[Rfam]
RNA sequence: CGGACCUUCAGCAGUGCCAUACAUAACAUUAGGUGUAUGGCCUGUUGAAAGUCCGAA
Numbered sequence: 001c002g003g004a005c006c007u008u009c010a011g012c013a014g015u016g017c018c019a020u021a022c023a024u025a026a027c028a029u030u031a032g033g034u035g036u037a038u039g040g041c042c043u044g045u046u047g048a049a050a051g052u053c054c055g056a057a
Stems, first nucleotide, its partner, number of pairs: 001055005007049004012044003016041005022035002

A member of the RNA family "mir-2253 microRNA precursor family" from Pristionchus pacificus, 57 nucleotides long. Gene Ontology terms of the family: RISC complex and miRNA-mediated post-transcriptional gene silencing. A search with the family's covariance model found it, with a score of 48 bits.